[Rfam]
Nucleotides: 386
Base pairs, nucleotide, nucleotide: 004386005385006384007382008326009325010324011323012322013321014320016037017036018035019034020033021032042380043379044378046377047376048375049374050373051238052237053236054235055234056073057072058071059070060069061068079233080232081231082230083229084105085104086103087102088101089100106124107122108121109120110119111118112117125228126227128168129167130166136159137158138157139156143153144152145151174226175225176222177221178220191210192209193208194207195206196205197204198203242258243257244256262292263291264290265289266288293311294310295309296308297307298306328365329364333360334359335358336357
Number, partner (000 for none) and nucleotide at each position: 001000a002000u003000g004386u005385u006384c007382g008326g009325g010324u011323a012322a013321u014320c015000g016037c017036u018035g019034c020033a021032c022000g023000g024000a025000u026000c027000a028000c029000a030000c031000c032021g033020u034019g035018u036017a037016g038000a039000g040000g041000a042380a043379a044378g045000u046377c047376c048375a049374u050373g051238c052237u053236c054235a055234c056073a057072c058071a059070g060069a061068c062000u063000g064000a065000g066000a067000u068061g069060u070059u071058u072057g073056u074000a075000g076000u077000g078000u079233u080232c081231g082230u083229g084105c085104u086103u087102g088101a089100c090000g091000a092000a093000a094000u095000c096000a097000u098000a099000a100089g101088u102087c103086a104085a105084g106124g107122u108121a109120a110119c111118c112117a113000u114000u115000a116000u117112u118111g119110g120109u121108u122107a123000a124106c125228g126227g127000c128168a129167g130166g131000g132000a133000a134000g135000a136159u137158g138157c139156c140000u141000a142000c143153g144152u145151c146000u147000u148000u149000u150000a151145g152144a153143u154000a155000g156139g157138g158137c159136a160000u161000c162000c163000u164000a165000a166130c167129c168128u169000u170000g171000a172000a173000a174226g175225u176222g177221c178220c179000a180000c181000a182000g183000u184000g185000a186000c187000g188000u189000a190000g191210u192209c193208a194207a195206g196205u197204a198203g199000g200000a201000a202000a203198c204197u205196a206195c207194u208193u209192g210191a211000g212000u213000g214000g215000a216000a217000c218000g219000a220178g221177g222176u223000a224000a225175a226174c227126c228125c229083c230082a231081c232080g233079a234055g235054u236053g237052a238051g239000c240000a241000a242258c243257c244256c245000a246000a247000a248000u249000a250000u251000u252000g253000g254000u255000a256244g257243g258242g259000g260000c261000a262292c263291c264290c265289u266288u267000g268000a269000u270000g271000a272000a273000g274000g275000a276000a277000u278000g279000c280000a281000a282000c283000u284000u285000u286000a287000a288266g289265a290264g291263g292262g293311a294310c295309a296308a297307g298306c299000u300000a301000a302000a303000u304000c305000g306298g307297c308296u309295u310294g311293u312000a313000g314000a315000u316000a317000g318000a319000u320014g321013a322012u323011u324010a325009c326008u327000a328365c329364u330000a331000a332000c333360g334359u335358a336357c337000g338000a339000g340000g341000c342000u343000g344000a345000c346000c347000a348000c349000c350000g351000u352000u353000u354000g355000c356000a357336g358335u359334a360333c361000u362000a363000c364329a365328g366000u367000a368000c369000a370000a371000a372000a373050c374049a375048u376047g377046g378044c379043u380042u381000a382007c383000a384006g385005a386004a
Rfam assigns this 386-nucleotide RNA from Terrihalobacillus insolitus to the family "Bacterial RNase P class B". Lineage of the source: Bacteria > Bacillota > Bacilli > Caryophanales > Terrihalobacillus. The family is grouped with related families in Rfam's "RNaseP clan". By type it is a ribozyme. The literature on the family includes a 1998 paper in Annu Rev Biochem by Frank and Pace, "Ribonuclease P: unity and diversity in a tRNA processing ribozyme". Pairs were carried over by alignment from the consensus structure, which is taken from published work. From the family's description: Ribonuclease P (RNase P) is a ubiquitous endoribonuclease, found in archaea, bacteria and eukarya as well as chloroplasts and mitochondria.